[Rfam]
RNA: mir-15 microRNA precursor family
RNA sequence: GGCUGCCUUGCUGUAGCAGCACGUAAAUAUUGGAGUUAAAACUACUGCUGAAGCCUCCAGUAUUGCUCGUGCUGCUGAAGCAAAGCUGAC
Numbered sequence: 001g002g003c004u005g006c007c008u009u010g011c012u013g014u015a016g017c018a019g020c021a022c023g024u025a026a027a028u029a030u031u032g033g034a035g036u037u038a039a040a041a042c043u044a045c046u047g048c049u050g051a052a053g054c055c056u057c058c059a060g061u062a063u064u065g066c067u068c069g070u071g072c073u074g075c076u077g078a079a080g081c082a083a084a085g086c087u088g089a090c
Stems, first nucleotide, its partner, number of pairs: 001090001003088001005086002014077010026064010